[Rfam]
RNA: Mammalian CPEB3 ribozyme
Organism: Crocodylus porosus
RNA sequence: GUUGGAAGUUUGAGGCCAUAACAAAUGUGUUCCUGGUGCAGCCUUGACAGAUUCCAACAAAUCUGCAAAUUUUGCU
Dot-bracket structure: .............[[[...(.((((.(((.......))).]]]....((((((......)))))).....)))).)